Notes: Shown here is a 77-nucleotide sequence from Labrus bergylta, a member of the family "mir-203 microRNA precursor family". Gene Ontology terms of the family: RISC complex and miRNA-mediated post-transcriptional gene silencing. It scores 71 bits against the family's covariance model. A reference for the family is Chen et al. (2005), "The developmental miRNA profiles of zebrafish as determined by small RNA cloning", Genes Dev. The source organism's lineage runs through Eukaryota, Euteleostomi, Osteoglossocephalai, Eupercaria and Labrus. The family's consensus secondary structure was predicted with RNAalifold.
[Rfam]
RNA sequence: UCCCCUCUGGUCUAGUGGUUCUUGACAGUUCAACAGUACUCAGUCCAUGUGAAAUGUUUAGGACCACUGGGUCAGAG
Number, nucleotide and partner (000 for none) at each position: 001u000002c000003c000004c000005c000006u000007c000008u000009g000010g000011u000012c000013u000014a068015g067016u066017g065018g064019u063020u000021c061022u060023u000024g058025a057026c056027a055028g000029u053030u052031c051032a050033a000034c000035a000036g000037u000038a000039c000040u000041c000042a000043g000044u000045c000046c000047a000048u000049g000050u032051g031052a030053a029054a000055u027056g026057u025058u024059u000060a022061g021062g000063a019064c018065c017066a016067c015068u014069g000070g000071g000072u000073c000074a000075g000076a000077g000